Small nucleolar RNA SNORA8: a 140-nucleotide RNA sequence from Nannospalax galili. Rfam's curators write: ACA8 is a member of the H/ACA class of snoRNA that guide the sites of modification of uridines to pseudouridines. The organism belongs to Nannospalax, within Eukaryota. A search with the family's covariance model found it, with a score of 99 bits.

Nucleotides: 140
Base pairs, nucleotide, nucleotide: 002061003060005058006057007056015054017052018047019046020045021044023042024040025039026038027037064129065128066127067126068125069124070123071121072120073119080109081108084105
Number, partner (000 for none) and nucleotide at each position: 001000u002061g003060c004000c005058u006057u007056g008000c009000a010000u011000g012000g013000u014000a015054u016000g017052u018047g019046u020045a021044c022000u023042c024040a025039g026038c027037a028000a029000c030000u031000c032000c033000a034000u035000c036000c037027u038026g039025c040024u041000g042023g043000u044021g045020u046019g047018u048000u049000c050000a051000a052017a053000g054015a055000a056007c057006a058005g059000c060003g061002c062000c063000a064129u065128a066127g067126a068125a069124a070123u071121u072120c073119g074000c075000u076000a077000u078000c079000u080109g081108g082000c083000a084105u085000u086000g087000u088000u089000g090000g091000u092000u093000u094000u095000c096000u097000u098000g099000g100000c101000u102000u103000u104000g105084g106000c107000a108081c109080u110000u111000a112000u113000u114000a115000a116000a117000c118000c119073u120072g121071g122000u123070a124069u125068u126067u127066c128065u129064g130000u131000u132000g133000a134000u135000a136000c137000a138000g139000u140000u